[Rfam]
RNA sequence: GUCACAGGUGGCGCGGCAAUUAUCACGCAGCGUCGAAUGCGCAAUACCUAACGAAGACGGUAGACAAG
Numbered sequence: 001g002u003c004a005c006a007g008g009u010g011g012c013g014c015g016g017c018a019a020u021u022a023u024c025a026c027g028c029a030g031c032g033u034c035g036a037a038u039g040c041g042c043a044a045u046a047c048c049u050a051a052c053g054a055a056g057a058c059g060g061u062a063g064a065c066a067a068g
Base pairs, nucleotide, nucleotide: 009035010034011033012032013031014030016028017027
RNA: sucC RNA